The record is a 127-nucleotide sequence from Psittacicella melopsittaci, which matches "Ribosomal S15 leader" in Rfam.

RNA sequence: CGCCUAUACUGAGUUAGAGAUCGGUAUCAGGUGAGUUUUAAUAAAUUUUUUUAAUUAAGGAAAAAUUAUCAUGUCUCUAAGUUCAGAACAAAAAGCUGAAAUUUUAGCUAAAUUUGGUCGUACAGAA
Numbered sequence: 001c002g003c004c005u006a007u008a009c010u011g012a013g014u015u016a017g018a019g020a021u022c023g024g025u026a027u028c029a030g031g032u033g034a035g036u037u038u039u040a041a042u043a044a045a046u047u048u049u050u051u052u053a054a055u056u057a058a059g060g061a062a063a064a065a066u067u068a069u070c071a072u073g074u075c076u077c078u079a080a081g082u083u084c085a086g087a088a089c090a091a092a093a094a095g096c097u098g099a100a101a102u103u104u105u106a107g108c109u110a111a112a113u114u115u116g117g118u119c120g121u122a123c124a125g126a127a
Stems, first nucleotide, its partner, number of pairs: 007026006049081002059078003
The family's consensus secondary structure is taken from published work. A search with the family's covariance model found it, with a score of 78 bits. Rfam classes the family as a cis-regulatory leader. About the family: The E. coli Ribosomal S15 gene 5' UTR can form two alternative structures. One that is a series of three hairpins, The other includes a pseudoknot. This structure causes translational regulation of the S15 protein. NCBI's taxonomy places the organism under Bacteria, Pseudomonadati, Pseudomonadota, Psittacicellaceae, Psittacicella.